The family of this 124-nucleotide RNA sequence from Callithrix jacchus is "Y RNA". The organism belongs to Callithrix, within Eukaryota. On this family, see Teunissen et al., Nucleic Acids Res 2000: "Conserved features of Y RNAs: a comparison of experimentally derived secondary structures". Y RNAs are components of the Ro ribonucleoprotein particle (Ro RNP), in association with Ro60 and La proteins. It is annotated as a non-coding RNA gene.
[Rfam]
RNA sequence: GGCUGGUCGGAAAGUAGUGAGUUAUCACAAUUGAUUUUUUACAGUCAGUUACAGAUCAAACUCCAUGUACUACUCCUCCCCCACUCCACCCCCACUUCUCACUACUGCACUUGGUUAGUCUUUA
Numbered sequence: 001g002g003c004u005g006g007u008c009g010g011a012a013a014g015u016a017g018u019g020a021g022u023u024a025u026c027a028c029a030a031u032u033g034a035u036u037u038u039u040u041a042c043a044g045u046c047a048g049u050u051a052c053a054g055a056u057c058a059a060a061c062u063c064c065a066u067g068u069a070c071u072a073c074u075c076c077u078c079c080c081c082c083a084c085u086c087c088a089c090c091c092c093c094a095c096u097u098c099u100c101a102c103u104a105c106u107g108c109a110c111u112u113g114g115u116u117a118g119u120c121u122u123u124a
Base pairs, nucleotide, nucleotide: 001120002119003118004117005116006115007114008113010112011111014108015107016103017102018101019100020099021098033082